This 151-nucleotide RNA sequence from Enterocloster bolteae belongs to the Rfam family "azaaromatic riboswitch aptamer (yjdF RNA)". Taxonomically the source falls in Enterocloster bolteae (Bacteria, Bacillati, Bacillota, Lachnospirales).
[Rfam]
RNA sequence: AAAAGCAAAGAUAAAAACACAACGCAGGAUAAAAACCUGCAGAGCUGGUAGGUAGUCCAGCCGCAUUCCUAUAGUCCUGCUUUAACUGGCGGGGAGACAGGGAUGUCAGUAACCCUCCCUCCUUGGGUCGUCCAUUCUUUGUUCAUCACAU
Numbered sequence: 001a002a003a004a005g006c007a008a009a010g011a012u013a014a015a016a017a018c019a020c021a022a023c024g025c026a027g028g029a030u031a032a033a034a035a036c037c038u039g040c041a042g043a044g045c046u047g048g049u050a051g052g053u054a055g056u057c058c059a060g061c062c063g064c065a066u067u068c069c070u071a072u073a074g075u076c077c078u079g080c081u082u083u084a085a086c087u088g089g090c091g092g093g094g095a096g097a098c099a100g101g102g103a104u105g106u107c108a109g110u111a112a113c114c115c116u117c118c119c120u121c122c123u124u125g126g127g128u129c130g131u132c133c134a135u136u137c138u139u140u141g142u143u144c145a146u147c148a149c150a151u
Stems, first nucleotide, its partner, number of pairs: 004143008044061005063106008118127003